RNA sequence: UUGUGGACUUCAGUUUCGGUCUCUCCCUGAUUUUACGGACCUGGUCUGAACAAUAUUCACUUCGGCCUCUGGGAAUAUUGUUCAGACCAGGUCCGUAAAUCAGGGAGAGACCUCACCUGAAGUCCAUAAUUGU
Numbered sequence: 001u002u003g004u005g006g007a008c009u010u011c012a013g014u015u016u017c018g019g020u021c022u023c024u025c026c027c028u029g030a031u032u033u034u035a036c037g038g039a040c041c042u043g044g045u046c047u048g049a050a051c052a053a054u055a056u057u058c059a060c061u062u063c064g065g066c067c068u069c070u071g072g073g074a075a076u077a078u079u080g081u082u083c084a085g086a087c088c089a090g091g092u093c094c095g096u097a098a099a100u101c102a103g104g105g106a107g108a109g110a111c112c113u114c115a116c117c118u119g120a121a122g123u124c125c126a127u128a129a130u131u132g133u
Stems, first nucleotide, its partner, number of pairs: 010120004015115001018112002021109012034097025
The family of this 133-nucleotide sequence from Mizuhopecten yessoensis is "mraW RNA". It scores 51 bits against the family's covariance model.